[Rfam]
The family of this 100-nucleotide RNA sequence from Aerococcus kribbianus is "TPP riboswitch aptamer (THI element)". Pairs were carried over by alignment from the consensus structure, which is taken from published work. Vitamin B(1) in its active form thiamin pyrophosphate (TPP) is an essential coenzyme that is synthesised by coupling of pyrimidine and thiazole moieties in bacteria.
RNA sequence: AUAACACACUAGGGGUGCCAUUAUGGCUGAGAUGUAGUGAUACGGACCCUUAAGACUUGAACUAGUUAAUACUAGCGUAAGGAAGUGAUGAUAGUGCGCC
Numbered sequence: 001a002u003a004a005c006a007c008a009c010u011a012g013g014g015g016u017g018c019c020a021u022u023a024u025g026g027c028u029g030a031g032a033u034g035u036a037g038u039g040a041u042a043c044g045g046a047c048c049c050u051u052a053a054g055a056c057u058u059g060a061a062c063u064a065g066u067u068a069a070u071a072c073u074a075g076c077g078u079a080a081g082g083a084a085g086u087g088a089u090g091a092u093a094g095u096g097c098g099c100c
Stems, first nucleotide, its partner, number of pairs: 007087004011050004016044001017027004034043003056081004062075004